[Rfam]
RNA sequence: AUUGCUCACUCUCCCUUAAGGGCUUCUGAAUUUGCCCCUGUUUUAAGGGCUUAAACUGAGGCCCUUGCGGGGAGAAUGAAUAA
Numbered sequence: 001a002u003u004g005c006u007c008a009c010u011c012u013c014c015c016u017u018a019a020g021g022g023c024u025u026c027u028g029a030a031u032u033u034g035c036c037c038c039u040g041u042u043u044u045a046a047g048g049g050c051u052u053a054a055a056c057u058g059a060g061g062c063c064c065u066u067g068c069g070g071g072g073a074g075a076a077u078g079a080a081u082a083a
Base pairs, nucleotide, nucleotide: 006079007078008077010075011074012073013072014071015070017067018066019065020064021063022062023061024060025059026058
RNA: MIR473 microRNA precursor family
Organism: Hibiscus syriacus